RNA sequence: AAACGCCAUAUGGGGUGCUGGCUGUGAGUCGGCUGAGAGUGGGCAUAAAUGCUUAUAACCCUUGAACCUGAUCUGGGUAAUGCCAGCGUAGGAAGAUGUUGUUUUGCUUGU
Numbered sequence: 001a002a003a004c005g006c007c008a009u010a011u012g013g014g015g016u017g018c019u020g021g022c023u024g025u026g027a028g029u030c031g032g033c034u035g036a037g038a039g040u041g042g043g044c045a046u047a048a049a050u051g052c053u054u055a056u057a058a059c060c061c062u063u064g065a066a067c068c069u070g071a072u073c074u075g076g077g078u079a080a081u082g083c084c085a086g087c088g089u090a091g092g093a094a095g096a097u098g099u100u101g102u103u104u105u106g107c108u109u110g111u
Base pairs, nucleotide, nucleotide: 007098008097009096012061013060014059017033018032019031020030021029040055041054042053043052044051067092068091069090070089073086074085075084076083
The record is a 111-nucleotide sequence from Youxingia wuxianensis, which matches "TPP riboswitch aptamer (THI element)" in Rfam. The match comes from Rfam's covariance-model search (63 bits). Vitamin B(1) in its active form thiamin pyrophosphate (TPP) is an essential coenzyme that is synthesised by coupling of pyrimidine and thiazole moieties in bacteria. Lineage of the source: Bacteria > Bacillota > Clostridia > Eubacteriales > Youxingia.